[Rfam]
RNA sequence: UCGUGCUAAGCGGGGAGGUAGCGGUGCCCUGUACUCGCAAUCCGCUAUAGCGAGGCCGAAGCCCUUCUAGAGGUUCUGAUGUUGUGGGGUCUGCCUUAAGUAAGUAGUGUUGACAUUCGGGUCCCGCGCAACGGAAACUCAUGAACCCUGUCAGGUCCGGAAGGAAGCAGCAGUAAGUGAGACCUUUCGUGUGCCGUGGGGUUGCCUGGAUCGAGCCAACUGCUUAAGAAGCGCUCAUGAUGUCAGGAUCGACGGAAGGUGCACGA
Number, nucleotide and partner (000 for none) at each position: 001u266002c265003g264004u263005g262006c261007u000008a000009a000010g056011c055012g030013g029014g028015g027016a000017g025018g000019u023020a000021g000022c000023g019024g000025u017026g000027c015028c014029c013030u012031g000032u000033a000034c054035u053036c052037g051038c050039a000040a000041u000042c000043c000044g000045c000046u000047a000048u000049a000050g038051c037052g036053a035054g034055g011056c010057c000058g000059a000060a000061g000062c000063c259064c258065u257066u256067c255068u254069a000070g000071a000072g250073g249074u248075u247076c246077u000078g000079a243080u242081g241082u240083u239084g238085u237086g236087g235088g234089g000090u000091c000092u233093g232094c000095c000096u227097u226098a225099a224100g223101u222102a000103a000104g220105u219106a000107g216108u215109g000110u000111u000112g000113a000114c000115a211116u210117u209118c208119g207120g206121g205122u204123c200124c199125c198126g197127c196128g195129c191130a190131a000132c189133g188134g187135a186136a185137a000138c181139u180140c179141a178142u177143g000144a000145a000146c000147c000148c173149u172150g171151u170152c000153a000154g000155g000156u165157c164158c163159g000160g000161a000162a000163g158164g157165a156166a000167g000168c000169a000170g151171c150172a149173g148174u000175a000176a000177g142178u141179g140180a139181g138182a000183c000184c000185u136186u135187u134188c133189g132190u130191g129192u000193g000194c000195c128196g127197u126198g125199g124200g123201g000202u000203u000204g122205c121206c120207u119208g118209g117210a116211u115212c000213g000214a000215g108216c107217c000218a000219a105220c104221u000222g101223c100224u099225u098226a097227a096228g000229a000230a000231g000232c093233g092234c088235u087236c086237a085238u084239g083240a082241u081242g080243u079244c000245a000246g076247g075248a074249u073250c072251g000252a000253c000254g068255g067256a066257a065258g064259g063260u000261g006262c005263a004264c003265g002266a001
The record is a 266-nucleotide RNA from Pullulanibacillus pueri, which matches "Bacterial large signal recognition particle RNA" in Rfam. Rfam classes the family as a non-coding RNA gene. The family's consensus secondary structure is taken from published work. Rfam links the family to the GO terms SRP-dependent cotranslational protein targeting to membrane, signal sequence recognition and signal recognition particle, plasma membrane targeting.